Rfam assigns this 99-nucleotide sequence from Enterococcus thailandicus to the family "THF (Tetrahydrofolate) riboswitch aptamer".
Taxonomically the source falls in Enterococcus (Bacteria, Bacillati, Bacilli, Enterococcaceae).
For this family Rfam cites "A eubacterial riboswitch class that senses the coenzyme tetrahydrofolate" (Ames et al., Chem Biol, 2010).
[Rfam]
RNA sequence: AACAGAGUAGAGGACAAAGCGUUAAGUGUCAUAAGAGAUGGGAUGUUGCUCUAUGAACGAAGAAUAAGUAUUCGCGGUUUUGCCCUCGCAUUCGCUGCA
Numbered sequence: 001a002a003c004a005g006a007g008u009a010g011a012g013g014a015c016a017a018a019g020c021g022u023u024a025a026g027u028g029u030c031a032u033a034a035g036a037g038a039u040g041g042g043a044u045g046u047u048g049c050u051c052u053a054u055g056a057a058c059g060a061a062g063a064a065u066a067a068g069u070a071u072u073c074g075c076g077g078u079u080u081u082g083c084c085c086u087c088g089c090a091u092u093c094g095c096u097g098c099a
Stems, first nucleotide, its partner, number of pairs: 003097003010087004015082005020076003026058002029056005035051003041093005062073004